[Rfam]
Rfam assigns this 115-nucleotide RNA sequence from Yimella sp. cx-51 to the family "SAM (S-adenosyl methionine) riboswitch aptamer". A reference for the family is Weinberg et al. (2008), "The aptamer core of SAM-IV riboswitches mimics the ligand-binding site of SAM-I riboswitches", RNA. Rfam describes the family as follows. SAM-IV is a mRNA element that regulates gene expression via direct sensing of S-adenosylmethionine (SAM or AdoMet). Taxonomically the source falls in Yimella (Bacteria, Actinomycetota, Actinomycetes, Micrococcales).
RNA sequence: GGUCAAGAGUCUCAGCGACAAGCCCCGGCUUGCUGAGCGGCAACCCUCCACCGCGGUGGGGUGCUCCGGGUGACGACCAGGCUGAUCCGCUCAAGCGGUUCGGCAAGCGCGGAUC
Numbered sequence: 001g002g003u004c005a006a007g008a009g010u011c012u013c014a015g016c017g018a019c020a021a022g023c024c025c026c027g028g029c030u031u032g033c034u035g036a037g038c039g040g041c042a043a044c045c046c047u048c049c050a051c052c053g054c055g056g057u058g059g060g061g062u063g064c065u066c067c068g069g070g071u072g073a074c075g076a077c078c079a080g081g082c083u084g085a086u087c088c089g090c091u092c093a094a095g096c097g098g099u100u101c102g103g104c105a106a107g108c109g110c111g112g113a114u115c
Stems, first nucleotide, its partner, number of pairs: 001078004009038001011037006021030002039065003044061003048056002081104005087098004